[Rfam]
RNA sequence: AUCGCGUAAACCGAAAAGCGUAAGAGUAGGUA
Numbered sequence: 001a002u003c004g005c006g007u008a009a010a011c012c013g014a015a016a017a018g019c020g021u022a023a024g025a026g027u028a029g030g031u032a
Stems, first nucleotide, its partner, number of pairs: 003020003010031003
This 32-nucleotide RNA from Tenacibaculum soleae belongs to the Rfam family "DUF805b RNA".
The source organism's lineage runs through Bacteria, Pseudomonadati, Flavobacteriia, Flavobacteriaceae and Tenacibaculum.
By type it is a cis-regulatory element.
It scores 36 bits against the family's covariance model.
Pairs were carried over by alignment from the consensus structure, which is taken from published work.